RNA sequence: UUUGAUCUAUGAUGAGCACAGACUAUUUUGUGAACUGCUGGAUGACACUUGCGGAUAUGGGACUGAGAUCAGCC
Numbered sequence: 001u002u003u004g005a006u007c008u009a010u011g012a013u014g015a016g017c018a019c020a021g022a023c024u025a026u027u028u029u030g031u032g033a034a035c036u037g038c039u040g041g042a043u044g045a046c047a048c049u050u051g052c053g054g055a056u057a058u059g060g061g062a063c064u065g066a067g068a069u070c071a072g073c074c
Stems, first nucleotide, its partner, number of pairs: 002072004

The record is a 74-nucleotide RNA from Scophthalmus maximus, which matches "Small nucleolar RNA SNORD99" in Rfam. The organism belongs to Scophthalmus, within Eukaryota. Gene Ontology terms of the family: RNA processing and nucleolus. It is annotated as a C/D-box small nucleolar RNA. The family is grouped with related families in Rfam's "SNORD58 clan". A search with the family's covariance model found it, with a score of 62 bits. Pairs were carried over by alignment from the consensus structure, which was predicted with RNAalifold.